Annotation:
This 87-nucleotide sequence from Sulfuricella denitrificans belongs to the Rfam family "c-di-GMP-I riboswitch aptamer". Rfam links the family to the GO term cyclic-di-GMP binding. Pairs were carried over by alignment from the consensus structure, which is taken from published work.
RNA sequence: AACCAAAAAAGGUAAACCCAUCGAAAGGUGGGGGCGCAAAGUUUCCGGUCUAAGGGGCGAAAGCUCUACGAUAGCGGGAUUGCUGGG
Numbered sequence: 001a002a003c004c005a006a007a008a009a010a011g012g013u014a015a016a017c018c019c020a021u022c023g024a025a026a027g028g029u030g031g032g033g034g035c036g037c038a039a040a041g042u043u044u045c046c047g048g049u050c051u052a053a054g055g056g057g058c059g060a061a062a063g064c065u066c067u068a069c070g071a072u073a074g075c076g077g078g079a080u081u082g083c084u085g086g087g
Stems, first nucleotide, its partner, number of pairs: 012037002017032006040081004045077003048072003055066004

Lineage of the source: Bacteria > Pseudomonadati > Sulfuricellaceae > Sulfuricella > Sulfuricella denitrificans.